[Rfam]
A member of the RNA family "Makes More Granules Regulator RNA (mmgR)" from Sphingomonas sp. G-3-2-10, 76 nucleotides long. SuhB later renamed mmgR (makes more granules regulator) was a putative non-coding RNA found multiple times in the Agrobacterium tumefaciens genome and related alpha-proteobacteria. Other non-coding RNAs uncovered in the same analysis include: speF, ybhL, metA, and serC.Several studies inSinorhizobium meliloti showed that suhB element is indeed a non-coding RNA:firstly it was detected on Northern blot and called Sm8RNA, secondly in an RNAseq study referred to as SmelC689.The mutant phenotype's (strain lacking the small RNA) cytoplasm contains higher content of polyhydroxybutyrate (PBH)storage granules than wild type strain. The sRNA is required to limit the PBH intracellular accumulation when the nitrogen-fixing Sinorhizobium meliloti is under condition of surplus carbon in relation to nitrogen. It has been renamed to mmgR. Further study confirmed that mmgR fine-tunes the regulation of PBH storage.Northern blot confirmed the expression of the sRNA in other rhizobia species. The pairing is the family consensus, mapped onto this sequence. The family's RNA type in Rfam is small RNA. The source organism's lineage runs through Bacteria, Pseudomonadati, Alphaproteobacteria, Sphingomonadales and Sphingomonas.

RNA sequence: AGCACGUGCCUUUCAGGCAUCCUCUCCUAAACCUUUCAAAGGCCGCCCUUCGGGGCGGCCGUUUUUUUUCGUCCUC
Numbered sequence: 001a002g003c004a005c006g007u008g009c010c011u012u013u014c015a016g017g018c019a020u021c022c023u024c025u026c027c028u029a030a031a032c033c034u035u036u037c038a039a040a041g042g043c044c045g046c047c048c049u050u051c052g053g054g055g056c057g058g059c060c061g062u063u064u065u066u067u068u069u070c071g072u073c074c075u076c
Stems, first nucleotide, its partner, number of pairs: 008018004041060008